[Rfam]
RNA sequence: AAAUAUAUAAUAUAUACCUCUCAUAUAAAGUUGGGAAUAUGGCCCAAAAGUUUCUACCUAGUUACCGUAAAUAACUAGACUAUGAGGGGAAGUGUAUCUAUG
Number, nucleotide and partner (000 for none) at each position: 001a000002a000003a000004u000005a000006u000007a000008u000009a000010a000011u000012a000013u000014a000015u000016a000017c000018c088019u087020c086021u085022c084023a083024u082025a081026u000027a000028a000029a000030g000031u047032u046033g045034g044035g043036a000037a000038u000039a000040u000041g000042g000043c035044c034045c033046a032047a031048a000049a000050g000051u000052u000053u000054c000055u000056a000057c000058c078059u077060a076061g075062u074063u073064a072065c000066c000067g000068u000069a000070a000071a000072u064073a063074a062075c061076u060077a059078g058079a000080c000081u025082a024083u023084g022085a021086g020087g019088g018089g000090a000091a000092g000093u000094g000095u000096a000097u000098c000099u000100a000101u000102g000

The family of this 102-nucleotide RNA sequence from Salirhabdus euzebyi is "Purine riboswitch aptamer". The family's consensus secondary structure is taken from published work. The family has 133 seed sequences and 4,097 matches in Rfam 15.1. Riboswitches are metabolite binding domains within certain messenger RNAs that serve as precision sensors for their corresponding targets.